[Rfam]
This 61-nucleotide RNA from Pristionchus pacificus belongs to the Rfam family "mir-8364 microRNA precursor family". The match comes from Rfam's covariance-model search (77 bits).
RNA sequence: UCUUCAUUUCACACACUCUCUCACCGGUCCGAGAGGCGAGAGACUGUGUGAAAUGAGGAGA
Numbered sequence: 001u002c003u004u005c006a007u008u009u010c011a012c013a014c015a016c017u018c019u020c021u022c023a024c025c026g027g028u029c030c031g032a033g034a035g036g037c038g039a040g041a042g043a044c045u046g047u048g049u050g051a052a053a054u055g056a057g058g059a060g061a
Base pairs, nucleotide, nucleotide: 001059002058003057004056005055006054007053010050012048013047014046015045017043019041020040021039022038